RAGATH-18 RNA: a 70-nucleotide RNA sequence from Acetoanaerobium sticklandii. Rfam's curators put it in the seed alignment. NCBI's taxonomy places the organism under Bacteria, Bacillati, Clostridia, Filifactoraceae, Acetoanaerobium. Rfam's curators write: Actinobacteria, Firmicutes, Fusobacteria, Thermotogae (1 example).

RNA sequence: UCCUUGGAGAGUUACACCAAACUAAAGUAGAGUGAGAAAUCAUUCAAAAUAGAACUCGAUGAAUAGGAAA
Numbered sequence: 001u002c003c004u005u006g007g008a009g010a011g012u013u014a015c016a017c018c019a020a021a022c023u024a025a026a027g028u029a030g031a032g033u034g035a036g037a038a039a040u041c042a043u044u045c046a047a048a049a050u051a052g053a054a055c056u057c058g059a060u061g062a063a064u065a066g067g068a069a070a
Stems, first nucleotide, its partner, number of pairs: 001068004009057005022052003030045003034041002